[Rfam]
Nucleotides: 079
Base pairs, nucleotide, nucleotide: 022039023038024037026035027034028033057078058077059076060075061074062073063072064071065070
Number, partner (000 for none) and nucleotide at each position: 001000g002000u003000a004000u005000u006000g007000a008000a009000c010000a011000a012000a013000a014000u015000a016000a017000g018000u019000u020000c021000a022039g023038g024037g025000c026035c027034u028033c029000a030000a031000c032000c033028g034027a035026g036000a037024c038023c039022c040000g041000g042000u043000g044000u045000c046000g047000a048000u049000u050000u051000u052000u053000g054000g055000u056000g057078a058077g059076c060075u061074c062073u063072u064071c065070a066000a067000u068000g069000c070065u071064g072063a073062a074061g075060a076059g077058c078057u079000u
This 79-nucleotide sequence from Pristionchus pacificus belongs to the Rfam family "SmY spliceosomal RNA". The family's consensus secondary structure is taken from published work. For this family Rfam cites "Organization of the Caenorhabditis elegans small non-coding transcriptome: genomic features, biogenesis, and expression" (Deng et al., Genome Res, 2006). It is annotated as a spliceosomal small nuclear RNA.